Description: Rfam assigns this 153-nucleotide RNA from Mitsuaria sp. WAJ17 to the family "FMN riboswitch aptamer (RFN element)".

RNA sequence: GCGCGUUCUCAGGGCGAGGUGAAACUCCUCACCGGCGGUAUCUGCUCUUUGCAGCAGGAGCCCGCGAGCGCCUCGUCCCCCCAGGGGCGAGGGUCAGCAGAUCUGGUGCGAUGCCAGGGCCGACGGUCACAGUCCGGAUGAAAGAGAUCGCGU
Numbered sequence: 001g002c003g004c005g006u007u008c009u010c011a012g013g014g015c016g017a018g019g020u021g022a023a024a025c026u027c028c029u030c031a032c033c034g035g036c037g038g039u040a041u042c043u044g045c046u047c048u049u050u051g052c053a054g055c056a057g058g059a060g061c062c063c064g065c066g067a068g069c070g071c072c073u074c075g076u077c078c079c080c081c082c083a084g085g086g087g088c089g090a091g092g093g094u095c096a097g098c099a100g101a102u103c104u105g106g107u108g109c110g111a112u113g114c115c116a117g118g119g120c121c122g123a124c125g126g127u128c129a130c131a132g133u134c135c136g137g138a139u140g141a142a143a144g145a146g147a148u149c150g151c152g153u
Stems, first nucleotide, its partner, number of pairs: 003151003007147004017029003031133002033122002035065004060120002068098002102118005124136003